The record is a 114-nucleotide sequence from Clarias magur, which matches "Potassium channel RNA editing signal" in Rfam. By type it is a cis-regulatory element. Rfam describes the family as follows. This family represents a group of sequences related to the human potassium channel Kv1.1 hairpin element which directs the efficient modification of an adenosine to inosine by an adenosine deaminase acting on RNA (ADAR). The ADAR modification causes an isoleucine/valine recoding event which lies in the ion-conducting pore of the potassium channel.
[Rfam]
RNA sequence: GUAGGUUACGGAGACAUGCACCCCGUGACGAUCGGAGGCAAAAUCGUCGGGUCGUUAUGCGCCAUCGCGGGCGUCUUGACCAUCGCUCUUCCCGUCCCGGUCAUCGUCUCCAAU
Numbered sequence: 001g002u003a004g005g006u007u008a009c010g011g012a013g014a015c016a017u018g019c020a021c022c023c024c025g026u027g028a029c030g031a032u033c034g035g036a037g038g039c040a041a042a043a044u045c046g047u048c049g050g051g052u053c054g055u056u057a058u059g060c061g062c063c064a065u066c067g068c069g070g071g072c073g074u075c076u077u078g079a080c081c082a083u084c085g086c087u088c089u090u091c092c093c094g095u096c097c098c099g100g101u102c103a104u105c106g107u108c109u110c111c112a113a114u
Base pairs, nucleotide, nucleotide: 001114002113004111005110008107009106010105011104013102014101015100018097020095021094037077038076040074049063050062